Ascomycota telomerase RNA: a 167-nucleotide part of an RNA from Fusarium flagelliforme. A reference for the family is Qi et al. (2013), "The common ancestral core of vertebrate and fungal telomerase RNAs", Nucleic Acids Res. Gene Ontology terms of the family: telomerase activity, telomerase catalytic core complex and telomere maintenance via telomerase. The base pairs follow the family's consensus structure. Rfam classes the family as a non-coding RNA gene.
[Rfam]
RNA sequence: CACGCCUGCGAGGAUCGAUCGGUCCCAACAGGUCCCUCAUAUCAGCCGCAAGGUUGAGCUUGAGACGAAAGGGUGGUUUUUAUGGAUGUAUUUUGUCCACCCGUCAUUGCCCUCCAUGCCUCUUGCUGGCGAGAACUUUGGAGAGGAAUCAAAAACUUGUCCAAGUU
Numbered sequence: 001c002a003c004g005c006c007u008g009c010g011a012g013g014a015u016c017g018a019u020c021g022g023u024c025c026c027a028a029c030a031g032g033u034c035c036c037u038c039a040u041a042u043c044a045g046c047c048g049c050a051a052g053g054u055u056g057a058g059c060u061u062g063a064g065a066c067g068a069a070a071g072g073g074u075g076g077u078u079u080u081u082a083u084g085g086a087u088g089u090a091u092u093u094u095g096u097c098c099a100c101c102c103g104u105c106a107u108u109g110c111c112c113u114c115c116a117u118g119c120c121u122c123u124u125g126c127u128g129g130c131g132a133g134a135a136c137u138u139u140g141g142a143g144a145g146g147a148a149u150c151a152a153a154a155a156c157u158u159g160u161c162c163a164a165g166u167u
Stems, first nucleotide, its partner, number of pairs: 007030002012026002016021001035067001036064004042057002047052001085161003088156002091154005110146002112143004121134005
Dot-bracket structure: ......((...((..(....)...))..))....(((((..((...(....)...))...))))..).................(((((.(((((..............((((((.....(((((....))))).....)))).))...)))))))..)))......